The family of this 124-nucleotide RNA from Aminipila butyrica is "Ribosomal protein L20 leader". The base pairs follow the family's consensus structure, which was predicted with CMfinder. This family is a putative r-protein leader autoregulatory structure found in B. subtilis and other low-GC Gram-positive bacteria. It is located in the 5' untranslated regions of mRNAs encoding initiation factor 3 followed by ribosomal proteins L35 and L20 (infC-rpmI-rplT). A Rho-independent transcription terminator structure that is probably involved in regulation is included at the 3' end.
RNA sequence: GUGAUAAAGAAGAAGUUAUCCGCUUCUCACCUUAUUGGCGACGUUGAUAGGGUUUAUAAAGCAAAGAGAGCACAGAAGUGUUUUUGUGGAGCGGGUACAAGUGUAUCCGCUUUAUUUGUUUAUU
Numbered sequence: 001g002u003g004a005u006a007a008a009g010a011a012g013a014a015g016u017u018a019u020c021c022g023c024u025u026c027u028c029a030c031c032u033u034a035u036u037g038g039c040g041a042c043g044u045u046g047a048u049a050g051g052g053u054u055u056a057u058a059a060a061g062c063a064a065a066g067a068g069a070g071c072a073c074a075g076a077a078g079u080g081u082u083u084u085u086g087u088g089g090a091g092c093g094g095g096u097a098c099a100a101g102u103g104u105a106u107c108c109g110c111u112u113u114a115u116u117u118g119u120u121u122a123u124u
Stems, first nucleotide, its partner, number of pairs: 011027006029053003036047001038044002090111009

Description:
Its family is annotated with regulation of gene expression in the Gene Ontology.